[Rfam]
RNA sequence: UAGGCUGAUCGCCCGGGGGGGGAACGCCGCUAUAUGUGGCAAGUACCUCUUUAACUGGGCGGUCCGAACC
Numbered sequence: 001u002a003g004g005c006u007g008a009u010c011g012c013c014c015g016g017g018g019g020g021g022g023a024a025c026g027c028c029g030c031u032a033u034a035u036g037u038g039g040c041a042a043g044u045a046c047c048u049c050u051u052u053a054a055c056u057g058g059g060c061g062g063u064c065c066g067a068a069c070c
Stems, first nucleotide, its partner, number of pairs: 007064010017050005026040005